[Rfam]
RNA: tRNA
RNA sequence: GGAGAGCUCGCCUAAUGGUAUGGCAGCAGUCUUGAAAACUGCCGUCAGCAAUGACGUGGGGGUUCGAGUCCCUCGCUCUCCG
Numbered sequence: 001g002g003a004g005a006g007c008u009c010g011c012c013u014a015a016u017g018g019u020a021u022g023g024c025a026g027c028a029g030u031c032u033u034g035a036a037a038a039c040u041g042c043c044g045u046c047a048g049c050a051a052u053g054a055c056g057u058g059g060g061g062g063u064u065c066g067a068g069u070c071c072c073u074c075g076c077u078c079u080c081c082g
Stems, first nucleotide, its partner, number of pairs: 001081007010024003026042005058074005